[Rfam]
RNA sequence: UGGGGUAUAGCUCAGUGGUAGAGCAUUCGACUUGAAAUCGUGAGGUCCCGGUUCGAACACGGGUAACCUUU
Number, nucleotide and partner (000 for none) at each position: 001u000002g069003g068004g067005g000006u065007a064008u000009a000010g024011c023012u022013c021014a000015g000016u000017g000018g000019u000020a000021g013022a012023g011024c010025a000026u042027u000028c040029g039030a038031c000032u000033u000034g000035a000036a000037a000038u030039c029040g028041u000042g026043a000044g000045g000046u000047c063048c062049c061050g060051g000052u000053u000054c000055g000056a000057a000058c000059a000060c050061g049062g048063g047064u007065a006066a000067c004068c003069u002070u000071u000